This 573-nucleotide RNA from Congzhengia minquanensis belongs to the Rfam family "ROOL RNA". About the family: Firmicutes, Fusobacteria (1 example), Tenericutes (1 example). The family's consensus secondary structure is taken from published work. Rfam classes the family as a small RNA.

[Rfam]
RNA sequence: ACUCUUUCUUAUGGCGAUGAAUACCUCGGUGCAGAACGGCCAGUCACCGUGCCGAGAUUGUACGUACAGCGAGAUAUUAUAUGAUGGGAUACUUUCACAUGGUAUCUUCUGAAACAUAGUGAUAUGUUUUGGAUAGGUGGGAACCACCAAAGCUAAGUAUAAGUGCAAAAAAAUAUUGCCGUAAAAAGUUACUGCCAGAUUGCCAACAUAAUAGACGCUGCUGUGCAGAAUAAUCUUGAUGCCUAUAUGGGUGGAACCAUGUAGGAUUGUAGAGAAAAUCCACUAAGUUGGUUGUGUCGUUGAAUUGCAGAAAUGCAGGUAUAAAAUCUGUUCAGUGUACAAGUAGCCCAAAUCGACAUUGAAACUAUAUUUUACUAAUAGAUUAAAAAAAUAAUAAGUUCUGAAUGACGGGUGAAAGUUCAAAGUAACCAAUCUUUGCUACAAUUAUUGCUUAUGCAAACGACAAAGAAGUAUUAGGGUAGCUCCCUUAUGCUCAGCUUUGUUGAGUAGUGGCUGAAUAUUAUGACGAUAUUUUGAUGUAAGGCGAAGGCCUAUUUUGUUGCCAUAAUAAAG
Numbered sequence: 001a002c003u004c005u006u007u008c009u010u011a012u013g014g015c016g017a018u019g020a021a022u023a024c025c026u027c028g029g030u031g032c033a034g035a036a037c038g039g040c041c042a043g044u045c046a047c048c049g050u051g052c053c054g055a056g057a058u059u060g061u062a063c064g065u066a067c068a069g070c071g072a073g074a075u076a077u078u079a080u081a082u083g084a085u086g087g088g089a090u091a092c093u094u095u096c097a098c099a100u101g102g103u104a105u106c107u108u109c110u111g112a113a114a115c116a117u118a119g120u121g122a123u124a125u126g127u128u129u130u131g132g133a134u135a136g137g138u139g140g141g142a143a144c145c146a147c148c149a150a151a152g153c154u155a156a157g158u159a160u161a162a163g164u165g166c167a168a169a170a171a172a173a174u175a176u177u178g179c180c181g182u183a184a185a186a187a188g189u190u191a192c193u194g195c196c197a198g199a200u201u202g203c204c205a206a207c208a209u210a211a212u213a214g215a216c217g218c219u220g221c222u223g224u225g226c227a228g229a230a231u232a233a234u235c236u237u238g239a240u241g242c243c244u245a246u247a248u249g250g251g252u253g254g255a256a257c258c259a260u261g262u263a264g265g266a267u268u269g270u271a272g273a274g275a276a277a278a279u280c281c282a283c284u285a286a287g288u289u290g291g292u293u294g295u296g297u298c299g300u301u302g303a304a305u306u307g308c309a310g311a312a313a314u315g316c317a318g319g320u321a322u323a324a325a326a327u328c329u330g331u332u333c334a335g336u337g338u339a340c341a342a343g344u345a346g347c348c349c350a351a352a353u354c355g356a357c358a359u360u361g362a363a364a365c366u367a368u369a370u371u372u373u374a375c376u377a378a379u380a381g382a383u384u385a386a387a388a389a390a391a392u393a394a395u396a397a398g399u400u401c402u403g404a405a406u407g408a409c410g411g412g413u414g415a416a417a418g419u420u421c422a423a424a425g426u427a428a429c430c431a432a433u434c435u436u437u438g439c440u441a442c443a444a445u446u447a448u449u450g451c452u453u454a455u456g457c458a459a460a461c462g463a464c465a466a467a468g469a470a471g472u473a474u475u476a477g478g479g480u481a482g483c484u485c486c487c488u489u490a491u492g493c494u495c496a497g498c499u500u501u502g503u504u505g506a507g508u509a510g511u512g513g514c515u516g517a518a519u520a521u522u523a524u525g526a527c528g529a530u531a532u533u534u535u536g537a538u539g540u541a542a543g544g545c546g547a548a549g550g551c552c553u554a555u556u557u558u559g560u561u562g563c564c565a566u567a568a569u570a571a572a573g
Base pairs, nucleotide, nucleotide: 007570009568010567011566012565013564014563015562016561017560018559019558020557021556025056026055027054028053029052036050037049038048039047058162059161060160061159062158063157072107073106074105075104076103077102079100080099082097083096084095086093087092108133109132110131111130112129113128114127115126116125117124118123136148137147138146139145140144170535171534172533173532174531175530176529184522187521188515191336192335193334194333196330197329198328199327200326201325202292203291204290205289206288207287218228219227220226221225234275235274236273237272239270242265243264244263245262247260248259249258252282253281254280255279295358296357297356298355299354305318306317307316308315309314340418346413347412348411349410401497402496403495421513423437424436425435440509441508442507449458465503467501468500470499471494473491474490476488477487478486479485542553543552544551545550